[Rfam]
RNA sequence: CAUUCGCGCCUGUAUCUUGCUGAACCGCUGCCAUCAUGGCCAACGAUCCGGUUGAGCAAAAUUUCAGGUGUGUGAGAAA
Numbered sequence: 001c002a003u004u005c006g007c008g009c010c011u012g013u014a015u016c017u018u019g020c021u022g023a024a025c026c027g028c029u030g031c032c033a034u035c036a037u038g039g040c041c042a043a044c045g046a047u048c049c050g051g052u053u054g055a056g057c058a059a060a061a062u063u064u065c066a067g068g069u070g071u072g073u074g075a076g077a078a079a
Base pairs, nucleotide, nucleotide: 003076004075005074006073007070008069009068010067011066012065014062015061017059018058020056021055023053025051026050027049